[Rfam]
RNA sequence: UGUUUCAAAACAGCCCCCAAGCGGUUGAUUGCGGCCCGACAUCCGUUAGAAUAAGCCGCAUCUCCACACACGGGAACGCGCCUUGAAACGCCGAUCACGCAGCCGAUCUAUCUGCGCCUCGCGGUAAGCGCCUCCUUCCCGAACCGGACGCUUCCCGCUGGGCCUCUAAGUACUAGAGUGCCGGGAGCGGCCGGGCCCCAGCCCGAUCCCGACCGGACCAAGACACCGCAUCCAUGCGGCGCCUUUGAGGCUGUGUAUUCAGCCCCCUGGCCCGCGGAUGACAGCCGGGAGUAGGGCAUGGAUUU
Number, nucleotide and partner (000 for none) at each position: 001u000002g000003u000004u033005u000006c031007a030008a000009a000010a000011c000012a000013g000014c023015c000016c021017c000018c000019a000020a000021g016022c000023g014024g000025u000026u000027g000028a000029u000030u007031g006032c000033g004034g000035c000036c000037c000038g000039a000040c000041a000042u000043c000044c000045g000046u000047u000048a000049g000050a000051a000052u000053a000054a000055g000056c000057c000058g000059c000060a000061u000062c000063u000064c000065c000066a000067c000068a000069c000070a000071c000072g140073g139074g138075a137076a136077c000078g134079c000080g131081c130082c128083u127084u126085g125086a000087a000088a000089c000090g107091c000092c105093g104094a000095u000096c000097a000098c000099g000100c000101a000102g000103c000104c093105g092106a000107u090108c000109u000110a000111u000112c124113u123114g122115c121116g000117c000118c000119u000120c000121g115122c114123g113124g112125u085126a084127a083128g082129c000130g081131c080132c000133u000134c078135c000136u076137u075138c074139c073140c072141g000142a000143a000144c194145c193146g192147g191148a000149c189150g188151c187152u186153u185154c000155c184156c183157g000158c000159u000160g000161g182162g181163c180164c178165u177166c176167u000168a000169a000170g000171u000172a000173c000174u000175a000176g166177a165178g164179u000180g163181c162182c161183g156184g155185g153186a152187g151188c150189g149190g000191c147192c146193g145194g144195g000196c000197c000198c000199c000200a000201g297202c296203c295204c294205g000206a000207u000208c000209c000210c000211g000212a000213c289214c288215g000216g286217a000218c000219c000220a000221a000222g000223a000224c000225a000226c000227c000228g000229c280230a279231u278232c277233c000234a000235u000236g000237c000238g000239g273240c000241g271242c270243c000244u269245u000246u000247g000248a000249g264250g263251c262252u261253g260254u000255g000256u000257a000258u000259u000260c253261a252262g251263c250264c249265c000266c000267c000268u000269g244270g242271c241272c000273c239274g000275c000276g000277g232278a231279u230280g229281a000282c000283a000284g000285c000286c216287g000288g214289g213290a000291g000292u000293a000294g204295g203296g202297c201298a000299u000300g000301g000302a000303u000304u000305u000